[Rfam]
RNA sequence: AUCUCACUACAUGUGGUAUGUGAGGUGUCAAUUUGUGAGUGGAUACAUGAGUUAGGUAAGAUAAAUCAUCAUUAAUGUGUAUCCACUUACAAUUUGACACCUCACAUGCCACAUGC
Numbered sequence: 001a002u003c004u005c006a007c008u009a010c011a012u013g014u015g016g017u018a019u020g021u022g023a024g025g026u027g028u029c030a031a032u033u034u035g036u037g038a039g040u041g042g043a044u045a046c047a048u049g050a051g052u053u054a055g056g057u058a059a060g061a062u063a064a065a066u067c068a069u070c071a072u073u074a075a076u077g078u079g080u081a082u083c084c085a086c087u088u089a090c091a092a093u094u095u096g097a098c099a100c101c102u103c104a105c106a107u108g109c110c111a112c113a114u115g116c
Base pairs, nucleotide, nucleotide: 020105021104022103023102025100026099029096030095031094033092034091035090036089038087039086040085